[Rfam]
RNA: Small nucleolar RNA SNORD19
Organism: Scyliorhinus torazame
RNA sequence: GAAAAAUGAAGACAAUUUUCUUUGCCUGAUAUUCUGUGACUGCUAAAGAUCCAACUCUGAUUUCACUCUGGCA
Dot-bracket structure: ((((........................................................)))).........
Numbered sequence: 001g002a003a004a005a006a007u008g009a010a011g012a013c014a015a016u017u018u019u020c021u022u023u024g025c026c027u028g029a030u031a032u033u034c035u036g037u038g039a040c041u042g043c044u045a046a047a048g049a050u051c052c053a054a055c056u057c058u059g060a061u062u063u064c065a066c067u068c069u070g071g072c073a
Stems, first nucleotide, its partner, number of pairs: 001064004